[Rfam]
RNA sequence: AUCAAUUAACUCAACUUACUGAUUUUUAAAUCAAGGUUUCCCCUGAGUUAAACGAAUUGCUGUGUGUAGUCUUUGCCCGUCUCAUAGGAUGGGCUUUUUUUUCG
Numbered sequence: 001a002u003c004a005a006u007u008a009a010c011u012c013a014a015c016u017u018a019c020u021g022a023u024u025u026u027u028a029a030a031u032c033a034a035g036g037u038u039u040c041c042c043c044u045g046a047g048u049u050a051a052a053c054g055a056a057u058u059g060c061u062g063u064g065u066g067u068a069g070u071c072u073u074u075g076c077c078c079g080u081c082u083c084a085u086a087g088g089a090u091g092g093g094c095u096u097u098u099u100u101u102u103c104g
Base pairs, nucleotide, nucleotide: 002022003021004020032045033044035042036041058066059065060064075094076093077092078091079090080089081088
RNA: RprA RNA
Organism: Acerihabitans arboris